[Rfam]
RNA sequence: GGCAGGUCUGAGUGCAAUGGUGUUUACAACUAAUUAAUCACAACCAGUUAACAGAUUUAUUUGUUCCUUCUCCACUCCCACUGCUUCACUUAACUAGUAAAA
Dot-bracket structure: .((.(((..((..(.(.(((.(.....(((.((..........................)).)))...........)))).)....)..)).))).))....
RNA: Y RNA